[Rfam]
RNA sequence: CGACUUCAAAAGCCCCGCGUUGAUCCCUAUAUAGGUCUUGUCCGGGGCAACCCGGUCUAUGGCGAUAAACGGCUUCGUAAUAAGCGGACUGGACCCGGGGGCGGUACCCGGCGCCUCCACCAACCUCCCUCUAGAAGCGGGAGCCCUUUUCGAAGGGGCAUGUGGGGGCGAAACAGGAUCGACAGACGUGUAAAGGUUGACCUUUCGCCCGGUAUGGUAUCCGCCGUUAUCGGGCUACUCGUACAGGUGCCAACGAUAAUGAAAUGGCCCUCGCUGCCUAACUUCUAGUUAGACAAGCGCGGCUUUGGGACGUGCGCCGGGCAACAGAAGCACGUCCC
Numbered sequence: 001c002g003a004c005u006u007c008a009a010a011a012g013c014c015c016c017g018c019g020u021u022g023a024u025c026c027c028u029a030u031a032u033a034g035g036u037c038u039u040g041u042c043c044g045g046g047g048c049a050a051c052c053c054g055g056u057c058u059a060u061g062g063c064g065a066u067a068a069a070c071g072g073c074u075u076c077g078u079a080a081u082a083a084g085c086g087g088a089c090u091g092g093a094c095c096c097g098g099g100g101g102c103g104g105u106a107c108c109c110g111g112c113g114c115c116u117c118c119a120c121c122a123a124c125c126u127c128c129c130u131c132u133a134g135a136a137g138c139g140g141g142a143g144c145c146c147u148u149u150u151c152g153a154a155g156g157g158g159c160a161u162g163u164g165g166g167g168g169c170g171a172a173a174c175a176g177g178a179u180c181g182a183c184a185g186a187c188g189u190g191u192a193a194a195g196g197u198u199g200a201c202c203u204u205u206c207g208c209c210c211g212g213u214a215u216g217g218u219a220u221c222c223g224c225c226g227u228u229a230u231c232g233g234g235c236u237a238c239u240c241g242u243a244c245a246g247g248u249g250c251c252a253a254c255g256a257u258a259a260u261g262a263a264a265u266g267g268c269c270c271u272c273g274c275u276g277c278c279u280a281a282c283u284u285c286u287a288g289u290u291a292g293a294c295a296a297g298c299g300c301g302g303c304u305u306u307g308g309g310a311c312g313u314g315c316g317c318c319g320g321g322c323a324a325c326a327g328a329a330g331c332a333c334g335u336c337c338c
Base pairs, nucleotide, nucleotide: 040057042055043054044053045052046051061209062208063207064206065205071202072201073199076196085188086187089185090184091183095111096110097109098108099107112170113169114168115167116166117165118164119163120162210226211225212224213223215237216236217235220233221232300319301318302317303316308336309335
This 338-nucleotide RNA sequence from Rhizomicrobium palustre belongs to the Rfam family "Alphaproteobacteria transfer-messenger RNA". The family's RNA type in Rfam is non-coding RNA gene. On this family, see Williams and Bartel, RNA 1996: "Phylogenetic analysis of tmRNA secondary structure". About the family: Bacterial tmRNA, also known as 10Sa RNA or SsrA, is named for its dual tRNA and mRNA-like properties. Its role is to liberate the mRNA from a stalled ribosome. The source organism's lineage runs through Bacteria, Pseudomonadati, Pseudomonadota, Micropepsaceae and Rhizomicrobium.